The record is a 114-nucleotide RNA sequence from Pseudomonas sp. 8AS, which matches "Guanidine-I riboswitch aptamer" in Rfam. Rfam 15.1 lists 1,509 matches to the family in 1,281 species. A reference for the family is Barrick et al. (2004), "New RNA motifs suggest an expanded scope for riboswitches in bacterial genetic control", Proc Natl Acad Sci U S A. It scores 81 bits against the family's covariance model. Its family is annotated with regulation of gene expression in the Gene Ontology.
RNA sequence: GCAAUGGCUGACUAGGGUUCCGGCUCGCCGUUCUCCACAGAGUGCGGCAAGUGACUGGUCCGAGAGUUGGCGACCUCGUUCGGGGUUACACGGCGGGAUAAAAGCCCGGGAGAA
Numbered sequence: 001g002c003a004a005u006g007g008c009u010g011a012c013u014a015g016g017g018u019u020c021c022g023g024c025u026c027g028c029c030g031u032u033c034u035c036c037a038c039a040g041a042g043u044g045c046g047g048c049a050a051g052u053g054a055c056u057g058g059u060c061c062g063a064g065a066g067u068u069g070g071c072g073a074c075c076u077c078g079u080u081c082g083g084g085g086u087u088a089c090a091c092g093g094c095g096g097g098a099u100a101a102a103a104g105c106c107c108g109g110g111a112g113a114a
Base pairs, nucleotide, nucleotide: 007071008070009069010068011067012066015061016060020058021057022055023052024051025050027048028047029046030045031044072087073086074085075084076083077082089109091112095107096106097105